[Rfam]
RNA: Bacterial RNase P class A
RNA sequence: CGAGUCAGCCAGACAGUCGCUGACGGACCAGCUUGUCCUGCCGACUGGUCGGCAUUUCAGGUUACCGUUGGAGGAAAGUCCGGGCUCCGCAGAGCAGAACGCCAGGUAACGCCUGGGAGGCGAAAGCCUACGGAAAGUGCAGCAGAGAGUAGACCGCCUGUUUAUCGCUUCGGCGCUGGGCAGGUAAGGGUGAAAGGGUGCGGUAAGAGCGCACCGCGCGACUGGUAACAGUUCGUGGCACGGCAAACCCCGUUCGGAGCAAGGCCAAAUAGGAACCCAAUGGUGUGGCUCGCACUGGGUUCGGGUAGGCUGCUUGAGGUCAGUAGUGAUGCUGAUCCCAGAUGAAUGACUGUCCCCGACAGAACCCGGCUUAUCGGCUGACUCAACUU
Dot-bracket structure: .(((((((((((((((((.(((((((......................................)))))))....[[[.[[[[[((((...[[[[.((((((((((.....)))))(((((....)))).)((...((((.............(((((((((((............)))))))))..)).......((((((.......))))))(((((((((....))).))))).)...))..)))))))))))))...((((......((((((...(((((.]]]]))))))))))).....))))......((((((((....))))))))..........)))))))..........]]]]]]]].).))))))))).....